The record is a 371-nucleotide RNA from Pontivivens insulae, which matches "Alphaproteobacteria transfer-messenger RNA" in Rfam.

RNA sequence: GUACUUGCCGACAGCGCCCAGAAACACUACUUACGACAUGUUCCUUUGGGGACUAUGGCGAUAAACGCGCAUGUAAUAAGCGGCUCGGACCCGGGGGCGGUACCCGGCGGCUCCACCAAUCACGGCUAUGCUGUGAUCACCCCGGUCAUUUGGCGGGCGGAUGGGGCCGAAACAGGAUCGACGGACGUCUAAAGAUGUUGCUUUCGCUCGGUGAGAUACCACCGUUAUCGGUUCAAACAGUAUAGUUGCAAAUGACAACCAUGCUCCGGUCGCAGUCGCCGCGUAAGCGGUGCCUAAGAUCGAAACUUAAGUCUUAGCGCCUAGCAGCGUUAAGCGGGGUUCGCAGGCACCUGGCAACAGAAGCCUGCACU
Numbered sequence: 001g002u003a004c005u006u007g008c009c010g011a012c013a014g015c016g017c018c019c020a021g022a023a024a025c026a027c028u029a030c031u032u033a034c035g036a037c038a039u040g041u042u043c044c045u046u047u048g049g050g051g052a053c054u055a056u057g058g059c060g061a062u063a064a065a066c067g068c069g070c071a072u073g074u075a076a077u078a079a080g081c082g083g084c085u086c087g088g089a090c091c092c093g094g095g096g097g098c099g100g101u102a103c104c105c106g107g108c109g110g111c112u113c114c115a116c117c118a119a120u121c122a123c124g125g126c127u128a129u130g131c132u133g134u135g136a137u138c139a140c141c142c143c144g145g146u147c148a149u150u151u152g153g154c155g156g157g158c159g160g161a162u163g164g165g166g167c168c169g170a171a172a173c174a175g176g177a178u179c180g181a182c183g184g185a186c187g188u189c190u191a192a193a194g195a196u197g198u199u200g201c202u203u204u205c206g207c208u209c210g211g212u213g214a215g216a217u218a219c220c221a222c223c224g225u226u227a228u229c230g231g232u233u234c235a236a237a238c239a240g241u242a243u244a245g246u247u248g249c250a251a252a253u254g255a256c257a258a259c260c261a262u263g264c265u266c267c268g269g270u271c272g273c274a275g276u277c278g279c280c281g282c283g284u285a286a287g288c289g290g291u292g293c294c295u296a297a298g299a300u301c302g303a304a305a306c307u308u309a310a311g312u313c314u315u316a317g318c319g320c321c322u323a324g325c326a327g328c329g330u331u332a333a334g335c336g337g338g339g340u341u342c343g344c345a346g347g348c349a350c351c352u353g354g355c356a357a358c359a360g361a362a363g364c365c366u367g368c369a370c371u
Stems, first nucleotide, its partner, number of pairs: 040053005057208005067201002069198004081187002085184003091107005108169007209224004215234002218232003337352004343368006
It scores 305 bits against the family's covariance model. From the family's description: Bacterial tmRNA, also known as 10Sa RNA or SsrA, is named for its dual tRNA and mRNA-like properties. Its role is to liberate the mRNA from a stalled ribosome. Rfam classes the family as a non-coding RNA gene.